The record is a 126-nucleotide RNA from Streptomyces hainanensis, which matches "Streptomyces RNA 4115" in Rfam. Identified by deep sequencing of transcriptome at the end of exponential growth phase. Sequencing size consistent with notrthern blot size. A reference for the family is Vockenhuber et al. (2011), "Deep sequencing-based identification of small non-coding RNAs in Streptomyces coelicolor", RNA Biol. Pairs were carried over by alignment from the consensus structure. Lineage of the source: Bacteria > Actinomycetota > Kitasatosporales > Streptomycetaceae > Streptomyces.
RNA sequence: GCGUGGGUCGGCUCGCCGCCUCGGGGCAGCACCCCUGAAGGCACAAGCGGGCCGGGGGAAGCCGCUGUCUCAUUCCCCGCGGACGGCGGCCUGGUCCGGGAGGCGGACAGCGUCUCCCGGACCACA
Numbered sequence: 001g002c003g004u005g006g007g008u009c010g011g012c013u014c015g016c017c018g019c020c021u022c023g024g025g026g027c028a029g030c031a032c033c034c035c036u037g038a039a040g041g042c043a044c045a046a047g048c049g050g051g052c053c054g055g056g057g058g059a060a061g062c063c064g065c066u067g068u069c070u071c072a073u074u075c076c077c078c079g080c081g082g083a084c085g086g087c088g089g090c091c092u093g094g095u096c097c098g099g100g101a102g103g104c105g106g107a108c109a110g111c112g113u114c115u116c117c118c119g120g121a122c123c124a125c126a
Stems, first nucleotide, its partner, number of pairs: 001125001006092002009054008062089009093123013